Record summary:
Rfam assigns this 133-nucleotide sequence from Pan troglodytes to the family "Small nucleolar RNA SNORA28". The family's consensus secondary structure was predicted with RNAfold. About the family: ACA28 is a member of the H/ACA class of snoRNA that guide the sites of modification of uridines to pseudouridines. Rfam links the family to the GO terms nucleolus and RNA processing. The family's RNA type in Rfam is H/ACA-box small nucleolar RNA.
RNA sequence: AAGACACUGUUGGGGCAGGAUGAUUAAAAACUGUUUUGACGCCAAUUGGAGCUUGCUAUACGCAAGAAAGUCUAGCCUAUUUCGGGUGUUUUUUUUCUCCAUGAGACAAGGCGGUUAUAUAGACUUGAACAGG
Numbered sequence: 001a002a003g004a005c006a007c008u009g010u011u012g013g014g015g016c017a018g019g020a021u022g023a024u025u026a027a028a029a030a031c032u033g034u035u036u037u038g039a040c041g042c043c044a045a046u047u048g049g050a051g052c053u054u055g056c057u058a059u060a061c062g063c064a065a066g067a068a069a070g071u072c073u074a075g076c077c078u079a080u081u082u083c084g085g086g087u088g089u090u091u092u093u094u095u096u097c098u099c100c101a102u103g104a105g106a107c108a109a110g111g112c113g114g115u116u117a118u119a120u121a122g123a124c125u126u127g128a129a130c131a132g133g
Stems, first nucleotide, its partner, number of pairs: 010050002012043002015040001016038006068126007078119003083114001085112001093106004